[Rfam]
RNA sequence: GGUUGGUGCAAGGUCGGAGCGGUGAAAGUCCGCUCCAUUCUUUCGAGAAUGUCGCUCAUACCAAUAAU
Numbered sequence: 001g002g003u004u005g006g007u008g009c010a011a012g013g014u015c016g017g018a019g020c021g022g023u024g025a026a027a028g029u030c031c032g033c034u035c036c037a038u039u040c041u042u043u044c045g046a047g048a049a050u051g052u053c054g055c056u057c058a059u060a061c062c063a064a065u066a067a068u
Stems, first nucleotide, its partner, number of pairs: 004063004013053001017035001019033003036051006
Shown here is a 68-nucleotide RNA sequence, a member of the family "Twister_sister_ribozyme". The sequence is in the family's curated seed alignment.